[Rfam]
About this RNA
The family of this 72-nucleotide RNA from Zea mays is "Small nucleolar RNA R66". The family has 6 seed sequences and 584 matches in Rfam 15.1. The base pairs follow the family's consensus structure, which was predicted with PFOLD. By type it is a C/D-box small nucleolar RNA. It scores 59 bits against the family's covariance model. About the family: snoR66 is a C/D box small nucleolar RNA, which acts as a methylation guide for 18S ribosomal RNA in plants. snoR66 has been alternatively named snoZ269 in rice.

RNA sequence: UCUUAUGAUGGCAUGAAUCUUUGAGACCUGAUUAUUCUCAUGAUGACAAACUAUACACAAUCUUCUGAGGAC
Numbered sequence: 001u002c003u004u005a006u007g008a009u010g011g012c013a014u015g016a017a018u019c020u021u022u023g024a025g026a027c028c029u030g031a032u033u034a035u036u037c038u039c040a041u042g043a044u045g046a047c048a049a050a051c052u053a054u055a056c057a058c059a060a061u062c063u064u065c066u067g068a069g070g071a072c
Stems, first nucleotide, its partner, number of pairs: 001071003031041002